[Rfam]
RNA sequence: CCAGUCGGCCGGGCAGCCGCGCUCCGCAUGUGGUCGAAAGGCCGCGGGGUGAGGAAAGUCCGGGCUCCACGGAAACACGGUGCCGGAUAACGUCCGGCGAGGGCGACCUCAGGGAAAGUGCAACAGAAAGCAAACCGCCCCGCCUUCUCGACGGCCGCCGGACCCUUGGGUCCCUUGAUGGCCGCCGAGGUGGCGGGGUAAGGGUGAAAGGGUGGGGUAAGAGCCCACCGCGACGCUGGCAACAGGGUCGGCAUGGCAAACCCCACCGGGAGCAAGACCGAAUAGGGACGACACGGCAGGCGCAAGCCUGCCAGCCUGUUUCCGGGACCGUCGUCCGGGUGGGUUGCGCGAGGCGGCAGGCAACUGCCGUCCCAGAUGAAUGGCUGCCACGUUCCGCUCUUCGGGGCGGGGCCAUACAGAACCCGGCUUACAGGCCGACUGGCAUU
Numbered sequence: 001c002c003a004g005u006c007g008g009c010c011g012g013g014c015a016g017c018c019g020c021g022c023u024c025c026g027c028a029u030g031u032g033g034u035c036g037a038a039a040g041g042c043c044g045c046g047g048g049g050u051g052a053g054g055a056a057a058g059u060c061c062g063g064g065c066u067c068c069a070c071g072g073a074a075a076c077a078c079g080g081u082g083c084c085g086g087a088u089a090a091c092g093u094c095c096g097g098c099g100a101g102g103g104c105g106a107c108c109u110c111a112g113g114g115a116a117a118g119u120g121c122a123a124c125a126g127a128a129a130g131c132a133a134a135c136c137g138c139c140c141c142g143c144c145u146u147c148u149c150g151a152c153g154g155c156c157g158c159c160g161g162a163c164c165c166u167u168g169g170g171u172c173c174c175u176u177g178a179u180g181g182c183c184g185c186c187g188a189g190g191u192g193g194c195g196g197g198g199u200a201a202g203g204g205u206g207a208a209a210g211g212g213u214g215g216g217g218u219a220a221g222a223g224c225c226c227a228c229c230g231c232g233a234c235g236c237u238g239g240c241a242a243c244a245g246g247g248u249c250g251g252c253a254u255g256g257c258a259a260a261c262c263c264c265a266c267c268g269g270g271a272g273c274a275a276g277a278c279c280g281a282a283u284a285g286g287g288a289c290g291a292c293a294c295g296g297c298a299g300g301c302g303c304a305a306g307c308c309u310g311c312c313a314g315c316c317u318g319u320u321u322c323c324g325g326g327a328c329c330g331u332c333g334u335c336c337g338g339g340u341g342g343g344u345u346g347c348g349c350g351a352g353g354c355g356g357c358a359g360g361c362a363a364c365u366g367c368c369g370u371c372c373c374a375g376a377u378g379a380a381u382g383g384c385u386g387c388c389a390c391g392u393u394c395c396g397c398u399c400u401u402c403g404g405g406g407c408g409g410g411g412c413c414a415u416a417c418a419g420a421a422c423c424c425g426g427c428u429u430a431c432a433g434g435c436c437g438a439c440u441g442g443c444a445u446u
Stems, first nucleotide, its partner, number of pairs: 001442010011431001012388007020051008056429003060426005065272004075321001078268005083097005098112001099110004113263002118261002120257002135203002137199008211229006230252001231250004236245003276345004286336006316326002352371008
RNA: Bacterial RNase P class A
Organism: Rhizobium sp. RU20A